[Rfam]
RNA sequence: UGAGUAGGCGCAGGUGGCUGCGGAUGGUCUAAAAACCGUCUGAGGAAAGUCCGGGCUUCCGAAAGACCAAACUUGCUGGACAACGCCCAGUGCGAGCGAUCGUGAGGAUAGUGCCACAGAAACAUACCGCCAAUAAUUCGGAAUUCGGAGUUCGUAAUUUCGAAUUUCGAAUUUCGAAUUCCGAAUUAUUGGUAAGGGUGCAAAGGUGCGGUAAGAGCGCACCAGCAACAUCGAGAGGUGUUGGCUCGGUAAACCCCGGUUGGAAGCAAGGCAGUAGAAACGACGGUUGGUCUUUUACCGGUUUCGGCAGGGGUCAGAAAACCUGACUUCAGCGAGUCCGCUAGAGGCGCUUGGUAACAAGCGUCCCAGAUAGAUAGCCGCCGCUUGAUCGCGCUGCGAUCGGGUAACAGAACCCGGCUUAUGUCUUACUCUUCCC
Numbered sequence: 001u002g003a004g005u006a007g008g009c010g011c012a013g014g015u016g017g018c019u020g021c022g023g024a025u026g027g028u029c030u031a032a033a034a035a036c037c038g039u040c041u042g043a044g045g046a047a048a049g050u051c052c053g054g055g056c057u058u059c060c061g062a063a064a065g066a067c068c069a070a071a072c073u074u075g076c077u078g079g080a081c082a083a084c085g086c087c088c089a090g091u092g093c094g095a096g097c098g099a100u101c102g103u104g105a106g107g108a109u110a111g112u113g114c115c116a117c118a119g120a121a122a123c124a125u126a127c128c129g130c131c132a133a134u135a136a137u138u139c140g141g142a143a144u145u146c147g148g149a150g151u152u153c154g155u156a157a158u159u160u161c162g163a164a165u166u167u168c169g170a171a172u173u174u175c176g177a178a179u180u181c182c183g184a185a186u187u188a189u190u191g192g193u194a195a196g197g198g199u200g201c202a203a204a205g206g207u208g209c210g211g212u213a214a215g216a217g218c219g220c221a222c223c224a225g226c227a228a229c230a231u232c233g234a235g236a237g238g239u240g241u242u243g244g245c246u247c248g249g250u251a252a253a254c255c256c257c258g259g260u261u262g263g264a265a266g267c268a269a270g271g272c273a274g275u276a277g278a279a280a281c282g283a284c285g286g287u288u289g290g291u292c293u294u295u296u297a298c299c300g301g302u303u304u305c306g307g308c309a310g311g312g313g314u315c316a317g318a319a320a321a322c323c324u325g326a327c328u329u330c331a332g333c334g335a336g337u338c339c340g341c342u343a344g345a346g347g348c349g350c351u352u353g354g355u356a357a358c359a360a361g362c363g364u365c366c367c368a369g370a371u372a373g374a375u376a377g378c379c380g381c382c383g384c385u386u387g388a389u390c391g392c393g394c395u396g397c398g399a400u401c402g403g404g405u406a407a408c409a410g411a412a413c414c415c416g417g418c419u420u421a422u423g424u425c426u427u428a429c430u431c432u433u434c435c436c
Base pairs, nucleotide, nucleotide: 002431003430004429005428006427007426008425010424011423012422013382014381015380016379017378018377019376021042022041023040024039025038026037027036028035047420048419049418051417052416053415054414055413056266057265058264059263065322070261071260072259074258075257076090077089078088079087091105092103093102094101095100106256107255111254112253113250114249115248127197128196129193130192131191132190133189134188135187136186137185138184139183140182141181142180143179144178145177146176147175148174149173150172151171152170153169154168205223206222207221208220209219210218225245226243227242228241229240230239231238232237270339271338274333275332277330278329279328313327314326315325316324317323346365347364348363349362350361351360352359353358
Shown here is a 436-nucleotide RNA from Leptolyngbya sp. FACHB-36, a member of the family "Bacterial RNase P class A".
It scores 239 bits against the family's covariance model.
The source organism's lineage runs through Bacteria, Cyanobacteriota, Cyanophyceae, Leptolyngbyaceae and Leptolyngbya.